[Rfam]
RNA: Plastid-ccsA-ndhD-1 3UTR RNA
Nucleotides: 049
Base pairs, nucleotide, nucleotide: 002045003044004043005042006041007040008039010037011036012035013034014033015032016031017030018029
Number, partner (000 for none) and nucleotide at each position: 001000c002045g003044a004043g005042a006041a007040c008039c009000a010037u011036u012035u013034g014033a015032a016031u017030c018029a019000c020000u021000a022000c023000a024000c025000u026000a027000a028000u029018u030017g031016a032015u033014u034013c035012a036011a037010a038000a039008g040007g041006u042005u043004c044003u045002c046000a047000u048000a049000a